c-di-GMP-I-GGC riboswitch aptamer: an 84-nucleotide RNA sequence from Emcibacter nanhaiensis. It scores 63 bits against the family's covariance model.
[Rfam]
RNA sequence: GGUGACAAUGGCAAACCGUCGGCAACGGCGGGACGCAAAACCACUGGUCCCUGAACAGGCUCAGGGAUAGCAGGGCUGCCGCAA
Numbered sequence: 001g002g003u004g005a006c007a008a009u010g011g012c013a014a015a016c017c018g019u020c021g022g023c024a025a026c027g028g029c030g031g032g033a034c035g036c037a038a039a040a041c042c043a044c045u046g047g048u049c050c051c052u053g054a055a056c057a058g059g060c061u062c063a064g065g066g067a068u069a070g071c072a073g074g075g076c077u078g079c080c081g082c083a084a
Base pairs, nucleotide, nucleotide: 003081004080011036012035016031017030018029019028020027021026034070039077041075042074044073045072046071047068048067049066050065051064052063053062054061